[Rfam]
RNA: Selenocysteine transfer RNA
Organism: Actinoplanes sp. SE50/110
RNA sequence: GGAGGCGUUCAGGUUGCUGGUGCUCCUCGCGGUCUUCAACACCGACGUGACCCGGACUCCGGGUCAGGCGGGUUCGAUUCCCGUCCGCCUCC
Dot-bracket structure: (((((((....((..((....))..))..((((.......))))...(((((.........)))))..((((.......))))..)))))))